Notes:
The record is a 56-nucleotide RNA from Streptomyces auratus, which matches "L17-Actino-Proteobacteria ribosomal protein leader" in Rfam. The source organism's lineage runs through Bacteria, Bacillati, Kitasatosporales, Streptomycetaceae and Streptomyces auratus. It is annotated as a cis-regulatory leader. The sequence is in the family's curated seed alignment.

[Rfam]
RNA sequence: CCGGUGAGCAACCGCUCACCGGGUCCUGACCCCGGUACCUGAUACGGCCGGGGCAG
Numbered sequence: 001c002c003g004g005u006g007a008g009c010a011a012c013c014g015c016u017c018a019c020c021g022g023g024u025c026c027u028g029a030c031c032c033c034g035g036u037a038c039c040u041g042a043u044a045c046g047g048c049c050g051g052g053g054c055a056g
Base pairs, nucleotide, nucleotide: 001022002021003020004019005018006017007016008015009014026056027055028054030053031052032051033050034049035048036047
Dot-bracket structure: (((((((((....)))))))))...(((.(((((((..........))))))))))